[Rfam]
RNA sequence: GUAUUCUUUCGCGCAUGAACCGCAUCCAGUCCGAACUUCGACGUCGCCGCUCGUCGCUCCCUUAGGGGCGCCGCUGGCUUCGUCACGGAUUCGCGCCUCAACAGGGUGCACGCUGUUCGAAUCAUGAAAGCCACGGACCUCCGUGGCUUUUUG
Number, nucleotide and partner (000 for none) at each position: 001g000002u000003a000004u000005u000006c000007u120008u119009u000010c000011g096012c095013g094014c093015a000016u000017g000018a000019a000020c000021c000022g000023c000024a000025u000026c000027c000028a000029g000030u000031c088032c087033g086034a000035a000036c000037u000038u000039c082040g081041a080042c000043g078044u077045c076046g074047c073048c000049g071050c070051u000052c000053g000054u066055c000056g000057c000058u000059c000060c000061c000062u000063u000064a000065g000066g054067g000068g000069c000070g050071c049072c000073g047074c046075u000076g045077g044078c043079u000080u041081c040082g039083u000084c000085a000086c033087g032088g031089a000090u000091u000092c000093g014094c013095g012096c011097c000098u000099c000100a000101a000102c000103a000104g000105g000106g000107u000108g000109c000110a000111c000112g000113c000114u000115g000116u000117u000118c000119g008120a007121a000122u000123c000124a000125u000126g000127a150128a149129a148130g147131c146132c145133a144134c143135g142136g141137a000138c000139c000140u000141c136142c135143g134144u133145g132146g131147c130148u129149u128150u127151u000152u000153g000
The record is a 153-nucleotide RNA sequence from Paraburkholderia saeva, which matches "Burkholderia sRNA 7" in Rfam. NCBI's taxonomy places the organism under Bacteria, Pseudomonadota, Betaproteobacteria, Burkholderiaceae, Paraburkholderia. From the family's description: Did not show any change in expression in iron-depletion and hydrogen peroxide (oxidative stress) treatment. Constitutively expressed. Possibly targets the GTPase, ObgE. By type it is a small RNA. For this family Rfam cites "Identification of novel small RNAs in Burkholderia cenocepacia KC-01 expressed under iron limitation and oxidative stress conditions" (Ghosh et al., Microbiology, 2017).